The record is a 125-nucleotide sequence from Streptomyces sp. F-3, which matches "Streptomyces RNA 5676" in Rfam. A reference for the family is Vockenhuber et al. (2011), "Deep sequencing-based identification of small non-coding RNAs in Streptomyces coelicolor", RNA Biol. Identified by deep sequencing of transcriptome at the end of exponential growth phase. Appears longer on northern blot than sequencing transcript. This indicates processing step. Streptomyces specific. The pairing is the family consensus, mapped onto this sequence. By type it is a small RNA.
RNA sequence: GGAUGAGAAGGACACCCGCCCACGGGAAACUGUGGGCGACAGGCCGUGGCCUCCCGGCUUCGACCUGGUCGUACCUCGCGCGCACACCCGGAGCCGGCAGGCUCCGAACCUCCUCACCGAUCGGA
Numbered sequence: 001g002g003a004u005g006a007g008a009a010g011g012a013c014a015c016c017c018g019c020c021c022a023c024g025g026g027a028a029a030c031u032g033u034g035g036g037c038g039a040c041a042g043g044c045c046g047u048g049g050c051c052u053c054c055c056g057g058c059u060u061c062g063a064c065c066u067g068g069u070c071g072u073a074c075c076u077c078g079c080g081c082g083c084a085c086a087c088c089c090g091g092a093g094c095c096g097g098c099a100g101g102c103u104c105c106g107a108a109c110c111u112c113c114u115c116a117c118c119g120a121u122c123g124g125a
Stems, first nucleotide, its partner, number of pairs: 004116004009111002017038009040067004045062002048059003071083002074080001089106007117124002